Shown here is a 99-nucleotide sequence from Coffea canephora, a member of the family "MIR397 microRNA precursor family". NCBI's taxonomy places the organism under Eukaryota, Spermatophyta, Magnoliopsida, lamiids, Coffea. Gene Ontology terms of the family: miRNA-mediated post-transcriptional gene silencing and RISC complex. A reference for the family is Mica et al. (2009), "High throughput approaches reveal splicing of primary microRNA transcripts and tissue specific expression of mature microRNAs in Vitis vinifera", BMC Genomics. It scores 69 bits against the family's covariance model.
RNA sequence: AUUAAAAAUAUCAUUGAGUGCAGCGUUGAUGAAGGAUCUCGAUCUUAGCAUUUUUAGCUGUCGAUUGAUUCAUCUGCGCUGCACCCAAUCAUGUUUUUU
Numbered sequence: 001a002u003u004a005a006a007a008a009u010a011u012c013a014u015u016g017a018g019u020g021c022a023g024c025g026u027u028g029a030u031g032a033a034g035g036a037u038c039u040c041g042a043u044c045u046u047a048g049c050a051u052u053u054u055u056a057g058c059u060g061u062c063g064a065u066u067g068a069u070u071c072a073u074c075u076g077c078g079c080u081g082c083a084c085c086c087a088a089u090c091a092u093g094u095u096u097u098u099u
Stems, first nucleotide, its partner, number of pairs: 006096006013089004018084009028074001030072003